[Rfam]
RNA sequence: UCAAAAUGAUGAAAUUCCACUUAAUUGGUCCGUGUUUCUGAAAUUAGGGAGGUCUGGUUGA
Numbered sequence: 001u002c003a004a005a006a007u008g009a010u011g012a013a014a015u016u017c018c019a020c021u022u023a024a025u026u027g028g029u030c031c032g033u034g035u036u037u038c039u040g041a042a043a044u045u046a047g048g049g050a051g052g053u054c055u056g057g058u059u060g061a
Stems, first nucleotide, its partner, number of pairs: 001061004

Shown here is a 61-nucleotide RNA from Fukomys damarensis, a member of the family "Small nucleolar RNA SNORD18". Its Rfam clan is "SNORD18 clan". The source organism's lineage runs through Eukaryota, Opisthokonta, Eumetazoa, Dipnotetrapodomorpha and Fukomys. The family's consensus secondary structure was predicted with PFOLD. For this family Rfam cites "Two different snoRNAs are encoded in introns of amphibian and human L1 ribosomal protein genes" (Prislei et al., Nucleic Acids Res, 1993). It is annotated as a C/D-box small nucleolar RNA.